msiK RNA: a 56-nucleotide RNA from Corynebacterium sp. ATCC 6931.
RNA sequence: UGCGGUUACUUUCACUCGGAUCGUUCGGCACGUACCUGCCGAUGAAAGGUUUGCAU
Numbered sequence: 001u002g003c004g005g006u007u008a009c010u011u012u013c014a015c016u017c018g019g020a021u022c023g024u025u026c027g028g029c030a031c032g033u034a035c036c037u038g039c040c041g042a043u044g045a046a047a048g049g050u051u052u053g054c055a056u
Base pairs, nucleotide, nucleotide: 009048010047011046012045013044014043025042026041027040028039029038030037

The family's consensus secondary structure is taken from published work.